[Rfam]
RNA sequence: CCCUCCGAAGUUUCCCUCAGGAUAGCUGGCGCCGAUCCGGUAGUUUUAUCCGGUAAAGCGAAUGAUUAGAGGCCUUGGGGACUUUUAGACCUCAACCUAUUCUCAAACUUUCAAUGGGUAAGAAGCGCGGCUCGCUCAAAUGGAGUCGUCGCAUCGUAGAAUACCCGGUGCCAAGUGGGCCACUUUUGGUAAGCAGAACUGGCGCUGUGGGAUGAACCAAACGCCGGGUUAAGGCGCCCGAUGCUGACGCUCAUCAGAGACCAUAAAAGGUGUUGGUUGAUACAGACAGCAGGACGGUGGCCAUGGAAGUCGGAAUCCGCUAAGGAGUGUGUAACAACUCACCUGCCGAAUCAACUAGCCCUGAAAAUGGAUGGCGCUGAAGCGUCGAGCCUAUACCCGGCCGUCGCCGCAAUACGAGCCCCCAGGGAGCCAUGCGGCGACGAGUAGGAGGGCCGUCGCGAUGGCGCUGAAGUCCGGGCCGUGAGGCUGGAUGGAGCCGUCGCGAGUGCAGAU
Numbered sequence: 001c002c003c004u005c006c007g008a009a010g011u012u013u014c015c016c017u018c019a020g021g022a023u024a025g026c027u028g029g030c031g032c033c034g035a036u037c038c039g040g041u042a043g044u045u046u047u048a049u050c051c052g053g054u055a056a057a058g059c060g061a062a063u064g065a066u067u068a069g070a071g072g073c074c075u076u077g078g079g080g081a082c083u084u085u086u087a088g089a090c091c092u093c094a095a096c097c098u099a100u101u102c103u104c105a106a107a108c109u110u111u112c113a114a115u116g117g118g119u120a121a122g123a124a125g126c127g128c129g130g131c132u133c134g135c136u137c138a139a140a141u142g143g144a145g146u147c148g149u150c151g152c153a154u155c156g157u158a159g160a161a162u163a164c165c166c167g168g169u170g171c172c173a174a175g176u177g178g179g180c181c182a183c184u185u186u187u188g189g190u191a192a193g194c195a196g197a198a199c200u201g202g203c204g205c206u207g208u209g210g211g212a213u214g215a216a217c218c219a220a221a222c223g224c225c226g227g228g229u230u231a232a233g234g235c236g237c238c239c240g241a242u243g244c245u246g247a248c249g250c251u252c253a254u255c256a257g258a259g260a261c262c263a264u265a266a267a268a269g270g271u272g273u274u275g276g277u278u279g280a281u282a283c284a285g286a287c288a289g290c291a292g293g294a295c296g297g298u299g300g301c302c303a304u305g306g307a308a309g310u311c312g313g314a315a316u317c318c319g320c321u322a323a324g325g326a327g328u329g330u331g332u333a334a335c336a337a338c339u340c341a342c343c344u345g346c347c348g349a350a351u352c353a354a355c356u357a358g359c360c361c362u363g364a365a366a367a368u369g370g371a372u373g374g375c376g377c378u379g380a381a382g383c384g385u386c387g388a389g390c391c392u393a394u395a396c397c398c399g400g401c402c403g404u405c406g407c408c409g410c411a412a413u414a415c416g417a418g419c420c421c422c423c424a425g426g427g428a429g430c431c432a433u434g435c436g437g438c439g440a441c442g443a444g445u446a447g448g449a450g451g452g453c454c455g456u457c458g459c460g461a462u463g464g465c466g467c468u469g470a471a472g473u474c475c476g477g478g479c480c481g482u483g484a485g486g487c488u489g490g491a492u493g494g495a496g497c498c499g500u501c502g503c504g505a506g507u508g509c510a511g512a513u
Base pairs, nucleotide, nucleotide: 001452002451003450004449005448006447011024013022014021015020027173028172029171030170031169032168033167044123045122046121047120048119049118050117051116056111057109058108063105064104065103068100070098071097072096075095076094077093078092079091080090082088125152126151127150128148129147130146131145132144133143179203180202181201182200184198185197186196187195188194208219209218210217223401224400225399226398227397229395233391234390235389242388244387248384249383250382268362269361270360272359273358274357275356276355277354278353279352280351281350289346290345291344292343293342295319296318297317301313302312320324325340329338330337402442403441404440405439406438407437408436409435410434454508456505457504458503459502460501461500462499463498464497465496472492473491478487479486480485

Annotation:
This 513-nucleotide part of an RNA from Dreissena polymorpha belongs to the Rfam family "Eukaryotic large subunit ribosomal RNA". NCBI's taxonomy places the organism under Eukaryota, Protostomia, Mollusca, Myida, Dreissena. The family's consensus secondary structure is taken from published work.